A member of the RNA family "5' ureB small RNA", 318 nucleotides long. Gene Ontology term of the family: negative regulation of gene expression. A reference for the family is Wen et al. (2013), "Helicobacter pylori 5'ureB-sRNA, a cis-encoded antisense small RNA, negatively regulates ureAB expression by transcription termination", J Bacteriol. The match comes from Rfam's covariance-model search (58 bits).
[Rfam]
RNA sequence: CCUCGUGGAUCUGGCCGGGGCACAGGAAGUGCACGUGCGUGUCGACGCCGCCGGCGGUCAGGAUGCGUCCCUGGCCGGAGAUCACCUCCGUCUCGGGUCCCACGACGAAGGACGACGCGCGCGGGUCGGUGUUGCCGGGCGGCGUCAUGGUCUCGGGGUUGUACGCCUUGCCGAUCGCCUGGAUCCGGCCGUCGCGCAGCCCGACGUCGGCCUUGACCACGCCCCAGUGGUCCAGGAUCAGCGCCCCGGUGAUCACCGUGUCCACCGGCUUGCGCUCAUGGUCGCGCGGGAUGUGCGACUGCCCCAUGGACUCGCGGA
Numbered sequence: 001c002c003u004c005g006u007g008g009a010u011c012u013g014g015c016c017g018g019g020g021c022a023c024a025g026g027a028a029g030u031g032c033a034c035g036u037g038c039g040u041g042u043c044g045a046c047g048c049c050g051c052c053g054g055c056g057g058u059c060a061g062g063a064u065g066c067g068u069c070c071c072u073g074g075c076c077g078g079a080g081a082u083c084a085c086c087u088c089c090g091u092c093u094c095g096g097g098u099c100c101c102a103c104g105a106c107g108a109a110g111g112a113c114g115a116c117g118c119g120c121g122c123g124g125g126u127c128g129g130u131g132u133u134g135c136c137g138g139g140c141g142g143c144g145u146c147a148u149g150g151u152c153u154c155g156g157g158g159u160u161g162u163a164c165g166c167c168u169u170g171c172c173g174a175u176c177g178c179c180u181g182g183a184u185c186c187g188g189c190c191g192u193c194g195c196g197c198a199g200c201c202c203g204a205c206g207u208c209g210g211c212c213u214u215g216a217c218c219a220c221g222c223c224c225c226a227g228u229g230g231u232c233c234a235g236g237a238u239c240a241g242c243g244c245c246c247c248g249g250u251g252a253u254c255a256c257c258g259u260g261u262c263c264a265c266c267g268g269c270u271u272g273c274g275c276u277c278a279u280g281g282u283c284g285c286g287c288g289g290g291a292u293g294u295g296c297g298a299c300u301g302c303c304c305c306a307u308g309g310a311c312u313c314g315c316g317g318a
Stems, first nucleotide, its partner, number of pairs: 002317001004316005010183005016177001018076002021073002030053002034050002037048004057069001059067001077172002081168001084162002090159007097151003104146004188303001190301002195297004201290002209245003213241003249285001252282001254280002258277001260275001